[Rfam]
RNA sequence: CGGAAAGAAAGGGAUUCAAACCUUCGGUACGGAUAACUCGUACAACGGAUUAG
Numbered sequence: 001c002g003g004a005a006a007g008a009a010a011g012g013g014a015u016u017c018a019a020a021c022c023u024u025c026g027g028u029a030c031g032g033a034u035a036a037c038u039c040g041u042a043c044a045a046c047g048g049a050u051u052a053g
Stems, first nucleotide, its partner, number of pairs: 010024004027043006
The family of this 53-nucleotide RNA sequence from Ricinus communis is "Plastid-psbl-rps4 3UTR RNA".
Rfam's curators write: Plastid psbl-rps4-psbC is a non-coding RNA (ncRNA) present in plastids. It is compose of two short stem-loops in tandem in the terminal 3 prime untranslate region (3UTR) mostly in psbl and rps4 seed plants genes.
The base pairs follow the family's consensus structure, which was predicted with LocARNA.
NCBI's taxonomy places the organism under Eukaryota, Streptophyta, Spermatophyta, Acalypheae, Ricinus.
The match comes from Rfam's covariance-model search (68 bits).
For this family Rfam cites "Protein-mediated protection as the predominant mechanism for defining processed mRNA termini in land plant chloroplasts" (Zhelyazkova et al., Nucleic Acids Res, 2012).
It is annotated as a cis-regulatory element.